Shown here is an 86-nucleotide RNA from Solanum tuberosum, a member of the family "MIR8024 microRNA precursor family". Taxonomically the source falls in Solanum (Eukaryota, Magnoliopsida, eudicotyledons, Gunneridae). Pairs were carried over by alignment from the consensus structure, which was predicted with RNAalifold.

RNA sequence: UUGAAGAAUUCGAAGACUUCAACUUGCAAGCUUAAAGAAUUUGAACACUUCAACUUGCAUACUUGGAUAAUUUGAAGACUUCAACU
Numbered sequence: 001u002u003g004a005a006g007a008a009u010u011c012g013a014a015g016a017c018u019u020c021a022a023c024u025u026g027c028a029a030g031c032u033u034a035a036a037g038a039a040u041u042u043g044a045a046c047a048c049u050u051c052a053a054c055u056u057g058c059a060u061a062c063u064u065g066g067a068u069a070a071u072u073u074g075a076a077g078a079c080u081u082c083a084a085c086u
Base pairs, nucleotide, nucleotide: 001084002083003082004081005080006079009076010075011074012073013072014071018067019066020065021064025059026058027057028056032053033052035050036049037048